[Rfam]
RNA sequence: GCAUCUGUAUCUUUCCCACUCCUUGCAAUAGUCCUGGACUGGGGACACAUGAUGCAACAGGAAGGCACAGGAAAUCCAGACGAGCUCCCUUUCACCACAGUGGGAGUUGUCUCUACGCCUUUGCAACAUUU
Numbered sequence: 001g002c003a004u005c006u007g008u009a010u011c012u013u014u015c016c017c018a019c020u021c022c023u024u025g026c027a028a029u030a031g032u033c034c035u036g037g038a039c040u041g042g043g044g045a046c047a048c049a050u051g052a053u054g055c056a057a058c059a060g061g062a063a064g065g066c067a068c069a070g071g072a073a074a075u076c077c078a079g080a081c082g083a084g085c086u087c088c089c090u091u092u093c094a095c096c097a098c099a100g101u102g103g104g105a106g107u108u109g110u111c112u113c114u115a116c117g118c119c120u121u122u123g124c125a126a127c128a129u130u131u
Stems, first nucleotide, its partner, number of pairs: 001055005013045006021037002065124003069120002078112006092103003
The record is a 131-nucleotide sequence from Bubo bubo, which matches "Small nucleolar RNA SNORA55" in Rfam.
Rfam 15.1 lists 1,476 matches to the family in 616 species.
A search with the family's covariance model found it, with a score of 90 bits.
Rfam classes the family as an H/ACA-box small nucleolar RNA.
Pairs were carried over by alignment from the consensus structure, which was predicted with PFOLD.